[Rfam]
RNA sequence: CGUGCAGCAUCGCCGAGUCCCUUCGAGGGAGCCGGGGACCCAUUCAAGUCCUUGGGGUGAAUCGGGCUGUGUCCGAACUGGGACAGCCGCCCGUAGGAGACCUUCCUGCUCCGAACCCGUCAGCUAACCCGGUAGGCGAGAAGGAAGGAAAGG
Numbered sequence: 001c002g003u004g005c006a007g008c009a010u011c012g013c014c015g016a017g018u019c020c021c022u023u024c025g026a027g028g029g030a031g032c033c034g035g036g037g038a039c040c041c042a043u044u045c046a047a048g049u050c051c052u053u054g055g056g057g058u059g060a061a062u063c064g065g066g067c068u069g070u071g072u073c074c075g076a077a078c079u080g081g082g083a084c085a086g087c088c089g090c091c092c093g094u095a096g097g098a099g100a101c102c103u104u105c106c107u108g109c110u111c112c113g114a115a116c117c118c119g120u121c122a123g124c125u126a127a128c129c130c131g132g133u134a135g136g137c138g139a140g141a142a143g144g145a146a147g148g149a150a151a152g153g
Base pairs, nucleotide, nucleotide: 011138012137013136014135018030019029020028031133032132033131034130035129036128041054042053055118056117057116063093064092065091066090096112097111098110099109

The family of this 153-nucleotide sequence from Streptomyces tardus is "c-di-AMP riboswitch aptamer (ydaO/yuaA leader)". The base pairs follow the family's consensus structure. Lineage of the source: Bacteria > Bacillati > Actinomycetota > Actinomycetes > Streptomyces.